Rfam assigns this 135-nucleotide sequence from Prolemur simus to the family "Small nucleolar RNA SNORA70".
On this family, see Charette and Gray, IUBMB Life 2000: "Pseudouridine in RNA: what, where, how, and why".
Taxonomically the source falls in Prolemur (Eukaryota, Opisthokonta, Craniata, Euarchontoglires).
The base pairs follow the family's consensus structure, which was predicted with PFOLD.
Rfam links the family to the GO terms nucleolus and RNA processing.
From the family's description: snoRNA U70 seems to be exclusive to mammals and is a member of the H/ACA class of snoRNA which contain H (ANANNA) and ACA box motifs.
By type it is an H/ACA-box small nucleolar RNA.
RNA sequence: UUGCAGCCAGUUAAUCCGACUGUGCUGCUUUCAUCUUGAGCAACUGGUGUGCAAUGGCUGCGAACAGCAGCCUCCUCGGUAGUGGGUACAACCUGUUGUUUGUAUGGAUUGUCCUAAGAGAUCUUAAAGACAACC
Numbered sequence: 001u002u003g004c005a006g007c008c009a010g011u012u013a014a015u016c017c018g019a020c021u022g023u024g025c026u027g028c029u030u031u032c033a034u035c036u037u038g039a040g041c042a043a044c045u046g047g048u049g050u051g052c053a054a055u056g057g058c059u060g061c062g063a064a065c066a067g068c069a070g071c072c073u074c075c076u077c078g079g080u081a082g083u084g085g086g087u088a089c090a091a092c093c094u095g096u097u098g099u100u101u102g103u104a105u106g107g108a109u110u111g112u113c114c115u116a117a118g119a120g121a122u123c124u125u126a127a128a129g130a131c132a133a134c135c
Stems, first nucleotide, its partner, number of pairs: 002053004019048004026042004078123003089111003093107002